This 30-nucleotide RNA sequence from Halolamina salifodinae belongs to the Rfam family "CRISPR RNA direct repeat element".
[Rfam]
RNA sequence: GAUUCAGACGCACCCUUGUGGGGUCGAAGC
Numbered sequence: 001g002a003u004u005c006a007g008a009c010g011c012a013c014c015c016u017u018g019u020g021g022g023g024u025c026g027a028a029g030c
Stems, first nucleotide, its partner, number of pairs: 012024004